[Rfam]
RNA sequence: CAAGCUAAAGGUAAACCUGCCGAAAGUCAGGGACACAAAGCUAAAGGGGCUUCGAGCGUCAAGAUUUCCGGUCUUUACGCCAUGCCAGCCAGCUGCCGAAG
Dot-bracket structure: (..(......((...((((.(....).))))..[))..((((...(((((.................................))).]))))))..)...)
The record is a 101-nucleotide sequence from Paenibacillus albilobatus, which matches "c-di-GMP-I-GGC riboswitch aptamer" in Rfam. Rfam links the family to the GO term cyclic-di-GMP binding. The family's consensus secondary structure is taken from published work. Lineage of the source: Bacteria > Bacillati > Bacillota > Bacilli > Paenibacillus. The match comes from Rfam's covariance-model search (59 bits).